[Rfam]
RNA sequence: GUGUCGAUCAAAGUGGAGGCCCUCUCCGCGGCUUGGCGGGAAAGUGCAUCCAUUUUGUUUGUCUC
Numbered sequence: 001g002u003g004u005c006g007a008u009c010a011a012a013g014u015g016g017a018g019g020c021c022c023u024c025u026c027c028g029c030g031g032c033u034u035g036g037c038g039g040g041a042a043a044g045u046g047c048a049u050c051c052a053u054u055u056u057g058u059u060u061g062u063c064u065c
Stems, first nucleotide, its partner, number of pairs: 005061003009057009019047002022044002025041003
This 65-nucleotide sequence from Mus musculus belongs to the Rfam family "mir-290 microRNA precursor family".
Its family is annotated with RISC complex and miRNA-mediated post-transcriptional gene silencing in the Gene Ontology.
Rfam 15.1 lists 565 matches to the family in 128 species.
Its Rfam clan is "mir-290 clan".
The organism belongs to Mus, within Eukaryota.
On this family, see Suh et al., Dev Biol 2004: "Human embryonic stem cells express a unique set of microRNAs".